[Rfam]
RNA sequence: UAAUAAAAACAAAAAAAGAAGCCUUGAGAAACCAGGACUUCCAUAGAACCGUUAAAGACGGUAACAAAGUUUUGCCUUAUGAAAUA
Numbered sequence: 001u002a003a004u005a006a007a008a009a010c011a012a013a014a015a016a017a018g019a020a021g022c023c024u025u026g027a028g029a030a031a032c033c034a035g036g037a038c039u040u041c042c043a044u045a046g047a048a049c050c051g052u053u054a055a056a057g058a059c060g061g062u063a064a065c066a067a068a069g070u071u072u073u074g075c076c077u078u079a080u081g082a083a084a085u086a
Stems, first nucleotide, its partner, number of pairs: 023036004048062006
Dot-bracket structure: ......................((((......))))...........((((((...))))))........................

Rfam assigns this 86-nucleotide RNA from Limosilactobacillus gastricus to the family "RNA anti-toxin A". Taxonomically the source falls in Limosilactobacillus gastricus (Bacteria, Bacillota, Bacilli, Limosilactobacillus).